ASpks TB sRNA: a 75-nucleotide RNA sequence. It is annotated as an antisense RNA. The match comes from Rfam's covariance-model search (82 bits). The family has 77 seed sequences and 9,052 matches in Rfam 15.1. On this family, see Arnvig and Young, Mol Microbiol 2009: "Identification of small RNAs in Mycobacterium tuberculosis".
[Rfam]
RNA sequence: CUUCACCGAGCCCAGCCGGAGCGGGUGUUCGGCGGUACGGCCCUGGCCGUAGGUGGCGAGCAGCGCCUGCGCCUC
Numbered sequence: 001c002u003u004c005a006c007c008g009a010g011c012c013c014a015g016c017c018g019g020a021g022c023g024g025g026u027g028u029u030c031g032g033c034g035g036u037a038c039g040g041c042c043c044u045g046g047c048c049g050u051a052g053g054u055g056g057c058g059a060g061c062a063g064c065g066c067c068u069g070c071g072c073c074u075c
Base pairs, nucleotide, nucleotide: 014026016024017023032070033069038065039064043060044059047056048055049054